The family of this 97-nucleotide sequence from Propionispira arboris is "pan motif". NCBI's taxonomy places the organism under Bacteria, Bacillota, Selenomonadales, Selenomonadaceae, Propionispira.
Nucleotides: 097
Base pairs, nucleotide, nucleotide: 002029003028004026005025006024007023008022010021011020065093066092067091068089069088070087071086072085074084075083076082
Number, partner (000 for none) and nucleotide at each position: 001000u002029a003028g004026a005025u006024a007023a008022c009000a010021u011020c012000g013000u014000a015000u016000g017000a018000u019000c020011g021010a022008g023007u024006u025005a026004u027000a028003c029002u030000u031000u032000u033000a034000c035000a036000u037000g038000c039000a040000a041000a042000g043000c044000a045000a046000a047000a048000a049000a050000g051000a052000a053000u054000a055000g056000u057000a058000g059000u060000u061000u062000u063000a064000u065093c066092u067091g068089c069088u070087u071086a072085g073000a074084u075083c076082u077000a078000g079000u080000g081000a082076a083075g084074a085072c086071u087070g088069a089068g090000a091067c092066a093065g094000a095000a096000a097000g